The family of this 85-nucleotide RNA from Lentibacillus sp. JNUCC-1 is "Group II catalytic intron D1-D4-1". The match comes from Rfam's covariance-model search (74 bits). Group II introns are found in rRNA, tRNA and mRNA of organelles in fungi, plants and protists, and also in mRNA in bacteria. Gene Ontology term of the family: Group II intron splicing. For this family Rfam cites "The ins and outs of group II introns" (Bonen and Vogel, Trends Genet, 2001).
[Rfam]
RNA sequence: UAACUGAGUACGUAAGUACUCACUGAACUGUCAGAAGUCAGCAGACGCCAUAGUAAUGGGGAUAUCUAGAGUUCCCAUGAAGGGC
Numbered sequence: 001u002a003a004c005u006g007a008g009u010a011c012g013u014a015a016g017u018a019c020u021c022a023c024u025g026a027a028c029u030g031u032c033a034g035a036a037g038u039c040a041g042c043a044g045a046c047g048c049c050a051u052a053g054u055a056a057u058g059g060g061g062a063u064a065u066c067u068a069g070a071g072u073u074c075c076c077a078u079g080a081a082g083g084g085c
Stems, first nucleotide, its partner, number of pairs: 001025002005022007037046003047085003056078008